A member of the RNA family "RAGATH-18 RNA", 67 nucleotides long. It is one of the family's seed sequences. The base pairs follow the family's consensus structure, which is taken from published work.
RNA sequence: CCUACGGACUGUCGUACUAACGAAAGUAGCUCGAAUUUUAGUGAACUCAGGCAGGUUGAACUAGGAA
Numbered sequence: 001c002c003u004a005c006g007g008a009c010u011g012u013c014g015u016a017c018u019a020a021c022g023a024a025a026g027u028a029g030c031u032c033g034a035a036u037u038u039u040a041g042u043g044a045a046c047u048c049a050g051g052c053a054g055g056u057u058g059a060a061c062u063a064g065g066a067a
Stems, first nucleotide, its partner, number of pairs: 001065004009054005022048002029042003
Dot-bracket structure: ((((....(((((........((.....(((........)))....)).))))).......))))..